About this RNA: The record is a 320-nucleotide RNA sequence from Firmicutes bacterium CAG:536, which matches "Bacterial RNase P class B" in Rfam. A reference for the family is Frank and Pace (1998), "Ribonuclease P: unity and diversity in a tRNA processing ribozyme", Annu Rev Biochem. Clan: RNaseP clan. Pairs were carried over by alignment from the consensus structure, which is taken from published work.
[Rfam]
RNA sequence: UUCAAAACGCAGUCGCUGGUUUUUAACUAGAGGAAAGUCCAUGCUCGCACAAUCUGCGAUGAUUGUAGUGUUUGUGCUAGAUGAAUAAAUAAGUCUAGGCAUUAAUUUGACGGCAACUUUAAUCCUAAGGGCAACUAUGGAAGCGAGUUUGAAAGUGCCACAGAGACGAGUUCGAUUGGAAACAACGAAGUGGAACGGGUAAACCCCACAAGCGAGAAACCCAAAUUUGGUAGGGGAGUCAGCUGGAAUGAAUUGAAAGGAAGGCUGGAUAUCGAAAGAUAUAGAUAAAUGGCUGCAUAUACAGAACAUGGCUUAUGAUU
Dot-bracket structure: ...((.(.((((((.((((((...))))))....[[[.[[[[[(((((((((((......)))))).....(((((((((((..........))))))(((......)).)((.((((....(((...((....))..)))....)))).....(((((...........((((.(((....)))))))........)))..))))))))))))))...(((..........)))...((((((..................))))))(((((....)))))........))))))..........]]]]]]]].)..))
Numbered sequence: 001u002u003c004a005a006a007a008c009g010c011a012g013u014c015g016c017u018g019g020u021u022u023u024u025a026a027c028u029a030g031a032g033g034a035a036a037g038u039c040c041a042u043g044c045u046c047g048c049a050c051a052a053u054c055u056g057c058g059a060u061g062a063u064u065g066u067a068g069u070g071u072u073u074g075u076g077c078u079a080g081a082u083g084a085a086u087a088a089a090u091a092a093g094u095c096u097a098g099g100c101a102u103u104a105a106u107u108u109g110a111c112g113g114c115a116a117c118u119u120u121a122a123u124c125c126u127a128a129g130g131g132c133a134a135c136u137a138u139g140g141a142a143g144c145g146a147g148u149u150u151g152a153a154a155g156u157g158c159c160a161c162a163g164a165g166a167c168g169a170g171u172u173c174g175a176u177u178g179g180a181a182a183c184a185a186c187g188a189a190g191u192g193g194a195a196c197g198g199g200u201a202a203a204c205c206c207c208a209c210a211a212g213c214g215a216g217a218a219a220c221c222c223a224a225a226u227u228u229g230g231u232a233g234g235g236g237a238g239u240c241a242g243c244u245g246g247a248a249u250g251a252a253u254u255g256a257a258a259g260g261a262a263g264g265c266u267g268g269a270u271a272u273c274g275a276a277a278g279a280u281a282u283a284g285a286u287a288a289a290u291g292g293c294u295g296c297a298u299a300u301a302c303a304g305a306a307c308a309u310g311g312c313u314u315a316u317g318a319u320u
Stems, first nucleotide, its partner, number of pairs: 004320002007316001009296006016030006035314003039311005044216005049066006072211005077098006099111001100109002112206002115149004123141003129136002155204002157200003171189004176185003220235003239268006269282005